[Rfam]
RNA sequence: GACUCAUCUGGGCAACCCGCACGAAAGUGCGGUGACGCAAAGCUGCGGGGCUAACGGUGCCAGUGCACCCACGCCAGCCGGGCCGCCAUG
Numbered sequence: 001g002a003c004u005c006a007u008c009u010g011g012g013c014a015a016c017c018c019g020c021a022c023g024a025a026a027g028u029g030c031g032g033u034g035a036c037g038c039a040a041a042g043c044u045g046c047g048g049g050g051c052u053a054a055c056g057g058u059g060c061c062a063g064u065g066c067a068c069c070c071a072c073g074c075c076a077g078c079c080g081g082g083c084c085g086c087c088a089u090g
Base pairs, nucleotide, nucleotide: 012038013037017032018031019030020029021028022027042083043082044081046080047079048078049075050074051073056069057068058067059066
RNA: c-di-GMP-I riboswitch aptamer